[Rfam]
RNA sequence: GACGCGCGUCACUUCACUACGGAUCGUCCGGCACGUACCUGCCGGUGAAGGGAAUGGUUC
Numbered sequence: 001g002a003c004g005c006g007c008g009u010c011a012c013u014u015c016a017c018u019a020c021g022g023a024u025c026g027u028c029c030g031g032c033a034c035g036u037a038c039c040u041g042c043c044g045g046u047g048a049a050g051g052g053a054a055u056g057g058u059u060c
Stems, first nucleotide, its partner, number of pairs: 010052001012050005028045006

Rfam assigns this 60-nucleotide RNA sequence from Nocardioides anomalus to the family "msiK RNA".
It scores 58 bits against the family's covariance model.
By type it is a cis-regulatory element.
The organism belongs to Nocardioides, within Bacteria.